[Rfam]
RNA sequence: CGGUUCCUUCGGGGUCAGGUGAAAUUCCUAACCGGCGGUGAUAAAGAGGAAACUCUUUUUAGUCCGUGACCCGGCUAUUUUUAAUAGACGGUGGAUUUGGUGAAACUCCAAAGCCGACAGUUAAAGUCUGGAUGGGAGAAGGAAUUU
Numbered sequence: 001c002g003g004u005u006c007c008u009u010c011g012g013g014g015u016c017a018g019g020u021g022a023a024a025u026u027c028c029u030a031a032c033c034g035g036c037g038g039u040g041a042u043a044a045a046g047a048g049g050a051a052a053c054u055c056u057u058u059u060u061a062g063u064c065c066g067u068g069a070c071c072c073g074g075c076u077a078u079u080u081u082u083a084a085u086a087g088a089c090g091g092u093g094g095a096u097u098u099g100g101u102g103a104a105a106c107u108c109c110a111a112a113g114c115c116g117a118c119a120g121u122u123a124a125a126g127u128c129u130g131g132a133u134g135g136g137a138g139a140a141g142g143a144a145u146u147u
Stems, first nucleotide, its partner, number of pairs: 003145008017029003031127002033116002035067004062114002071091002096112005118130003